The family of this 85-nucleotide RNA from Ornithinibacillus caprae is "c-di-GMP-I riboswitch aptamer".

[Rfam]
RNA sequence: CAUUGAAAAAGGCAAACUAUUUGAAAAAAUAGGACGCAAAGCCUAGGGUCUAAAGUUUAUUAACCAUGAUCGCCUGGCUACCAAG
Numbered sequence: 001c002a003u004u005g006a007a008a009a010a011g012g013c014a015a016a017c018u019a020u021u022u023g024a025a026a027a028a029a030u031a032g033g034a035c036g037c038a039a040a041g042c043c044u045a046g047g048g049u050c051u052a053a054a055g056u057u058u059a060u061u062a063a064c065c066a067u068g069a070u071c072g073c074c075u076g077g078c079u080a081c082c083a084a085g
Stems, first nucleotide, its partner, number of pairs: 012037002017032006040079004045075003048070003055064003
Dot-bracket structure: ...........((...((((((....))))))...))..((((.((((((....(((....)))...)))..)))))))......

Overview:
It scores 84 bits against the family's covariance model. NCBI's taxonomy places the organism under Bacteria, Bacillati, Bacillota, Caryophanales, Ornithinibacillus.